The record is a 251-nucleotide RNA from Upupa epops, which matches "Small nucleolar RNA SNORD17" in Rfam. The snoRNA HBI-43 belongs to the C/D family of snoRNAs, guiding 2'O-ribose methylation at position U3797 of the 28S rRNA. Pseudouridylation in position U3797 is predicted to be guided by the H/ACA snoRNA ACA48. The family has 19 seed sequences and 1,015 matches in Rfam 15.1. A reference for the family is Huttenhofer et al. (2001), "RNomics: an experimental approach that identifies 201 candidates for novel, small, non-messenger RNAs in mouse", EMBO J. It scores 101 bits against the family's covariance model.
RNA sequence: GUGAUGUGAUGACAAAGUUUAUCCAUUCUCUGAGUGCAGUGGUGCUGUCCUCCUGCAGCACCCUGAUUUCUGUUUUAGGGUCUGGGUGCUGUGCAGCCUCCAGAGACCCUUCAAUCUCCCAGUGUUCUACUGAGGGGUUUUGUAAGGUGUGGCUGUCUGGCUGCCUGCAGGAGUGACAUAGUCCCAGCAGGGUUAGAGCCCCUUUUUAUGGAGCUCCAUCCUCGCUAAGAUGAUGGUUGAUGUCUGAUCGC
Numbered sequence: 001g002u003g004a005u006g007u008g009a010u011g012a013c014a015a016a017g018u019u020u021a022u023c024c025a026u027u028c029u030c031u032g033a034g035u036g037c038a039g040u041g042g043u044g045c046u047g048u049c050c051u052c053c054u055g056c057a058g059c060a061c062c063c064u065g066a067u068u069u070c071u072g073u074u075u076u077a078g079g080g081u082c083u084g085g086g087u088g089c090u091g092u093g094c095a096g097c098c099u100c101c102a103g104a105g106a107c108c109c110u111u112c113a114a115u116c117u118c119c120c121a122g123u124g125u126u127c128u129a130c131u132g133a134g135g136g137g138u139u140u141u142g143u144a145a146g147g148u149g150u151g152g153c154u155g156u157c158u159g160g161c162u163g164c165c166u167g168c169a170g171g172a173g174u175g176a177c178a179u180a181g182u183c184c185c186a187g188c189a190g191g192g193u194u195a196g197a198g199c200c201c202c203u204u205u206u207u208a209u210g211g212a213g214c215u216c217c218a219u220c221c222u223c224g225c226u227a228a229g230a231u232g233a234u235g236g237u238u239g240a241u242g243u244c245u246g247a248u249c250g251c
Base pairs, nucleotide, nucleotide: 010250011249012248017243018242020240023236024235025234027233028232030229031228034225035224039188040187042185044182045181046180047179048178049175050173051172052171053170054169056167057166059088060087061086062085063084065082068080069079070078071077093164094163095162096161097160098159106150107149108147112142114138115137116136117135118134120132121131122130123129124128190223191222192220194218196216197215199213